[Rfam]
RNA sequence: GGUUGGGCAGGAACUGCUUCAAGAUGAUUGGCUUAUUGGGUGGGGAGCU
Dot-bracket structure: ..((((((((...))))).))).......(((((.(......).)))))
RNA: Na+ riboswitch aptamer (DUF1646)